RNA: nrdJ RNA
RNA sequence: ACCUGACCAGGGCAACGUGCAGACGCCCUGGUUCCAGACAGAACACACCGUGCCACGGGAAGAAAGUGCGCACAUAUGGGCGUU
Numbered sequence: 001a002c003c004u005g006a007c008c009a010g011g012g013c014a015a016c017g018u019g020c021a022g023a024c025g026c027c028c029u030g031g032u033u034c035c036a037g038a039c040a041g042a043a044c045a046c047a048c049c050g051u052g053c054c055a056c057g058g059g060a061a062g063a064a065a066g067u068g069c070g071c072a073c074a075u076a077u078g079g080g081c082g083u084u
Stems, first nucleotide, its partner, number of pairs: 005033009017024002050073004054068003